[Rfam]
RNA: Small nucleolar RNA SNORA28
RNA sequence: GCUUCCUACUCUGUGACAGAUUAUCCAGUCUGGCACAAUUUGAGCUAGCUACAGCAAGAAAGUCUGACCAAUUCCAGCGCUUCCCCCUCUGUGAGAUGGGCUGUUAUGCAGACUUAAACAGC
Numbered sequence: 001g002c003u004u005c006c007u008a009c010u011c012u013g014u015g016a017c018a019g020a021u022u023a024u025c026c027a028g029u030c031u032g033g034c035a036c037a038a039u040u041u042g043a044g045c046u047a048g049c050u051a052c053a054g055c056a057a058g059a060a061a062g063u064c065u066g067a068c069c070a071a072u073u074c075c076a077g078c079g080c081u082u083c084c085c086c087c088u089c090u091g092u093g094a095g096a097u098g099g100g101c102u103g104u105u106a107u108g109c110a111g112a113c114u115u116a117a118a119c120a121g122c
Base pairs, nucleotide, nucleotide: 009044010043011042012037013036014035015034017032018031019030020029021028022027060115061114062113063112064111065110066109071107072106075103076102077101078100084095086093